[Rfam]
RNA: tRNA
RNA sequence: GGCUGAAUAGCUCGUUGGUAAGAGCAGUCGCCCGGCAAGCGAAAGACUCGGGUUCGAUUCCCGAUUCAGCGA
Numbered sequence: 001g002g003c004u005g006a007a008u009a010g011c012u013c014g015u016u017g018g019u020a021a022g023a024g025c026a027g028u029c030g031c032c033c034g035g036c037a038a039g040c041g042a043a044a045g046a047c048u049c050g051g052g053u054u055c056g057a058u059u060c061c062c063g064a065u066u067c068a069g070c071g072a
Stems, first nucleotide, its partner, number of pairs: 002070006010025004028042004048064005